[Rfam]
RNA sequence: CCGUUCGUCCCAUUCGCCGGCGGCAUUUCCCCAGCAGCCAUGACCUAUCCAGGCUGCGGUGCGGUUCGCCGCACAGGUCAUUCCUCUUCGGACGCGUCGUGCGUCCUUUCACACCAACCCACAAGGGAUCUUCCUCCCUUGCGGGCGGA
Numbered sequence: 001c002c003g004u005u006c007g008u009c010c011c012a013u014u015c016g017c018c019g020g021c022g023g024c025a026u027u028u029c030c031c032c033a034g035c036a037g038c039c040a041u042g043a044c045c046u047a048u049c050c051a052g053g054c055u056g057c058g059g060u061g062c063g064g065u066u067c068g069c070c071g072c073a074c075a076g077g078u079c080a081u082u083c084c085u086c087u088u089c090g091g092a093c094g095c096g097u098c099g100u101g102c103g104u105c106c107u108u109u110c111a112c113a114c115c116a117a118c119c120c121a122c123a124a125g126g127g128a129u130c131u132u133c134c135u136c137c138c139u140u141g142c143g144g145g146c147g148g149a
Base pairs, nucleotide, nucleotide: 012027013025016024017023018022034057035056036055037054038053039052042079043078044077045076059074060073061072062071063070064069114148115147120143122141123140124139125138126137127136
RNA: radC RNA
Organism: Paracidovorax valerianellae